Rfam assigns this 69-nucleotide sequence from Muraenolepis orangiensis to the family "mir-29 microRNA precursor family". This family represents the microRNA (miRNA) precursors mir-29. On this family, see Ambros, Cell 2001: "microRNAs: tiny regulators with great potential". It scores 55 bits against the family's covariance model. The family's consensus secondary structure was predicted with PFOLD. Rfam 15.1 lists 3,328 matches to the family in 787 species. Taxonomically the source falls in Muraenolepis (Eukaryota, Craniata, Vertebrata, Ctenosquamata).

Nucleotides: 069
Base pairs, nucleotide, nucleotide: 001069002068003067004066006063007062008061009060010059011058012057013056017052018051019050020049021048024046025045026044027043
Number, partner (000 for none) and nucleotide at each position: 001069a002068g003067a004066a005000u006063c007062u008061g009060a010059u011058u012057u013056c014000c015000u016000c017052u018051g019050g020049u021048g022000g023000u024046u025045a026044g027043g028000g029000g030000u031000c032000g033000c034000u035000c036000a037000c038000u039000a040000c041000u042000g043027u044026c045025u046024a047000g048021c049020a050019c051018c052017a053000u054000a055000u056013g057012a058011a059010a060009u061008c062007a063006g064000u065000g066004u067003u068002c069001u